The record is a 297-nucleotide sequence from Suricata suricatta, which matches "Mason-Pfizer monkey virus packaging signal" in Rfam. The family's consensus secondary structure was predicted with PFOLD. From the family's description: This family represents a group of sequences that are related to the Mason-Pfizer monkey virus (MPMV) packaging signal. Taxonomically the source falls in Suricata (Eukaryota, Craniata, Sarcopterygii, Mammalia).
RNA sequence: UGGUGCCCAACGUGGGGCCUGAGUAUGAGGGGUCCAGUGAAGAACACCGAUCAAAGAUAAAAAGAAGAUAAAGAAGUAGCAGCCUACGUUUAAAGAAUGUCCAGGGAGAUGUCUAUGCAGGAACCUGCUGCUGCAUAGUCCAGGGCUCAAGUAAGUGAUCAGAAAUUAUGGGGCAAGAAAUAAGACGACAUGAGGCUUUUGUAAAUGGUCUAACAGAGACCUUAAGGGCAUGGGAAGUAAAGGUUAAGAAAAAGCAAUUAUUAGAAUGUUUUCAGUUCCUUCAUGAAGUCUGUCCUU
Numbered sequence: 001u002g003g004u005g006c007c008c009a010a011c012g013u014g015g016g017g018c019c020u021g022a023g024u025a026u027g028a029g030g031g032g033u034c035c036a037g038u039g040a041a042g043a044a045c046a047c048c049g050a051u052c053a054a055a056g057a058u059a060a061a062a063a064g065a066a067g068a069u070a071a072a073g074a075a076g077u078a079g080c081a082g083c084c085u086a087c088g089u090u091u092a093a094a095g096a097a098u099g100u101c102c103a104g105g106g107a108g109a110u111g112u113c114u115a116u117g118c119a120g121g122a123a124c125c126u127g128c129u130g131c132u133g134c135a136u137a138g139u140c141c142a143g144g145g146c147u148c149a150a151g152u153a154a155g156u157g158a159u160c161a162g163a164a165a166u167u168a169u170g171g172g173g174c175a176a177g178a179a180a181u182a183a184g185a186c187g188a189c190a191u192g193a194g195g196c197u198u199u200u201g202u203a204a205a206u207g208g209u210c211u212a213a214c215a216g217a218g219a220c221c222u223u224a225a226g227g228g229c230a231u232g233g234g235a236a237g238u239a240a241a242g243g244u245u246a247a248g249a250a251a252a253a254g255c256a257a258u259u260a261u262u263a264g265a266a267u268g269u270u271u272u273c274a275g276u277u278c279c280u281u282c283a284u285g286a287a288g289u290c291u292g293u294c295c296u297u
Stems, first nucleotide, its partner, number of pairs: 006031003012026003035049001037047002098149002101145002111140001112138001117131004155174002159171003181224003184220001186218001232272004237267002241259002244256001283296001285294002